[Rfam]
RNA sequence: GAGGCGAUCGCGGGAGAGACCCGGCCUUGGCCGGGCGCCGAAGGAGCAACCGCCCCCGGAAUCUCUCAGGCAAAAGGACCGCGCUCGCCUG
Number, nucleotide and partner (000 for none) at each position: 001g000002a000003g000004g000005c000006g086007a085008u000009c083010g082011c081012g080013g079014g000015a000016g000017a000018g000019a000020c035021c034022c033023g032024g000025c000026c000027u000028u000029g000030g000031c000032c023033g022034g021035g020036c000037g071038c070039c069040g067041a066042a000043g000044g065045a064046g063047c000048a000049a000050c058051c000052g000053c000054c000055c000056c000057c000058g050059g000060a000061a000062u000063c046064u045065c044066u041067c040068a000069g039070g038071c037072a000073a000074a000075a000076g000077g000078a000079c013080c012081g011082c010083g009084c000085u007086c006087g000088c000089c000090u000091g000
Shown here is a 91-nucleotide sequence from Sphingomonas cremea, a member of the family "Glycine riboswitch aptamer". NCBI's taxonomy places the organism under Bacteria, Pseudomonadati, Pseudomonadota, Sphingomonadales, Sphingomonas. This family represents the bacterial glycine riboswitch.